[Rfam]
RNA sequence: GGAGAGGUGGCCGAGUGGUUGAAGGCAGCGGUCUUGAAAACCGCCGUACCUUCACGGGUACCGUGGGUUCGAAUCCCACCCUCUCUG
Numbered sequence: 001g002g003a004g005a006g007g008u009g010g011c012c013g014a015g016u017g018g019u020u021g022a023a024g025g026c027a028g029c030g031g032u033c034u035u036g037a038a039a040a041c042c043g044c045c046g047u048a049c050c051u052u053c054a055c056g057g058g059u060a061c062c063g064u065g066g067g068u069u070c071g072a073a074u075c076c077c078a079c080c081c082u083c084u085c086u087g
Stems, first nucleotide, its partner, number of pairs: 001086007010026003028044005063079005
The record is an 87-nucleotide sequence from Marinithermofilum abyssi, which matches "tRNA" in Rfam. Pairs were carried over by alignment from the consensus structure, which is taken from published work. The source organism's lineage runs through Bacteria, Bacillota, Bacilli, Thermoactinomycetaceae and Marinithermofilum. The literature on the family includes a 1993 paper in Trends Biochem Sci by Hou, "The tertiary structure of tRNA and the development of the genetic code".